Rfam assigns this 110-nucleotide RNA from Caenorhabditis brenneri to the family "SL2 RNA".
For this family Rfam cites "trans splicing of polycistronic Caenorhabditis elegans pre-mRNAs: analysis of the SL2 RNA" (Evans and Blumenthal, Mol Cell Biol, 2000).
Lineage of the source: Eukaryota > Chromadorea > Rhabditida > Rhabditoidea > Caenorhabditis.
About the family: This family represents SL2 RNA. SL2 RNA is involved in trans splicing in lower eukaryotes. Trans-splicing is a form of RNA processing. The acquisition of a spliced leader from a SL RNA is a intra-molecular reaction which precisely joins exons derived from separately transcribed RNAs. Approximately 25% of C. elegans genes are organised into polycistronic transcription units and the presence of SL2 on an mRNA is an indication the the gene is in an operon.
The family is grouped with related families in Rfam's "SL clan".

[Rfam]
RNA sequence: GGUUUUAACCCAGUUACCAAGGUAAUUCGGCGUUCCGACCUUUUCGAAUGGAAAGUGUCGAACAACUUUAAUUUUUGGAAACGCUCUUCCGGGGUAUCCGGUUGGGCAGA
Numbered sequence: 001g002g003u004u005u006u007a008a009c010c011c012a013g014u015u016a017c018c019a020a021g022g023u024a025a026u027u028c029g030g031c032g033u034u035c036c037g038a039c040c041u042u043u044u045c046g047a048a049u050g051g052a053a054a055g056u057g058u059c060g061a062a063c064a065a066c067u068u069u070a071a072u073u074u075u076u077g078g079a080a081a082c083g084c085u086c087u088u089c090c091g092g093g094g095u096a097u098c099c100g101g102u103u104g105g106g107c108a109g110a
Stems, first nucleotide, its partner, number of pairs: 007034002009030002013026005036060004040055004045051001085108001087106003091102001093099002